The record is a 46-nucleotide RNA sequence from Alysiella filiformis, which matches "PreQ1 (pre queuosine) riboswitch aptamer" in Rfam. On this family, see Reader et al., J Biol Chem 2004: "Identification of four genes necessary for biosynthesis of the modified nucleoside queuosine". The pairing is the family consensus, mapped onto this sequence. It scores 42 bits against the family's covariance model. This family is a bacterial riboswitch that binds to the metabolite preQ1, an intermediate in the biosynthesis of the modified nucleoside queuosine from GTP. One example of this riboswitch is located in the leader of the Bacillus subtilis ykvJKLM (queCDEF) operon which encodes four genes necessary for queuosine production. PreQ1 binding to the riboswitch aptamer is thought to induce premature transcription termination within the leader to down-regulate expression of these genes.
RNA sequence: AACCACGCGGUUCGUAACCCUCCCGCGAUAACAAAACUAGGAAUUU
Dot-bracket structure: .....(((((....[[......)))))..........]].......